[Rfam]
RNA sequence: CACUCAUCCAGAGGGGCAGAGGGACACGGCCCGGCGAAGCCCCGGCAACCGCCGCUCGCGCGGAAGGGUGCCAAUUCCGUCCCGCGCGGCUCGACGGCCCGACGCGGGGAAGAUGAGGA
Numbered sequence: 001c002a003c004u005c006a007u008c009c010a011g012a013g014g015g016g017c018a019g020a021g022g023g024a025c026a027c028g029g030c031c032c033g034g035c036g037a038a039g040c041c042c043c044g045g046c047a048a049c050c051g052c053c054g055c056u057c058g059c060g061c062g063g064a065a066g067g068g069u070g071c072c073a074a075u076u077c078c079g080u081c082c083c084g085c086g087c088g089g090c091u092c093g094a095c096g097g098c099c100c101g102a103c104g105c106g107g108g109g110a111a112g113a114u115g116a117g118g119a
Stems, first nucleotide, its partner, number of pairs: 003117006013043005021032003026080004044072004049068002052063003076111001081108006

The family of this 119-nucleotide RNA sequence from Geodermatophilus sp. TF02-6 is "SAM riboswitch aptamer (S box leader)". Lineage of the source: Bacteria > Bacillati > Actinomycetes > Geodermatophilaceae > Geodermatophilus.